A member of the RNA family "Small Cajal body specific RNA 8" from Calidris pygmaea, 130 nucleotides long. Its family is annotated with nucleolus, Cajal body and RNA processing in the Gene Ontology. The family's RNA type in Rfam is small Cajal body RNA. NCBI's taxonomy places the organism under Eukaryota, Euteleostomi, Sauria, Saurischia, Calidris. The family has 22 seed sequences and 955 matches in Rfam 15.1.
Nucleotides: 130
Base pairs, nucleotide, nucleotide: 002056003055004054005053006052007051015043016042017041018040022036023035024034068123069122070121071120072119073118081109082108083107086104087103088102089101
Number, partner (000 for none) and nucleotide at each position: 001000u002056g003055g004054g005053a006052g007051g008000c009000u010000g011000a012000u013000a014000c015043a016042c017041a018040a019000u020000u021000a022036g023035g024034g025000a026000u027000a028000a029000c030000u031000c032000u033000g034024c035023u036022c037000u038000a039000a040018u041017u042016g043015u044000c045000a046000c047000a048000u049000g050000u051007u052006c053005u054004c055003c056002c057000u058000a059000u060000a061000u062000u063000a064000a065000a066000a067000c068123u069122g070121c071120c072119u073118u074000c075000u076000g077000a078000u079000g080000a081109c082108c083107g084000g085000g086104a087103c088102g089101a090000a091000u092000u093000g094000a095000g096000g097000g098000a099000a100000g101089u102088c103087g104086u105000a106000a107083c108082g109081g110000a111000c112000a113000g114000a115000u116000a117000c118073g119072g120071g121070g122069c123068a124000c125000a126000c127000a128000a129000u130000g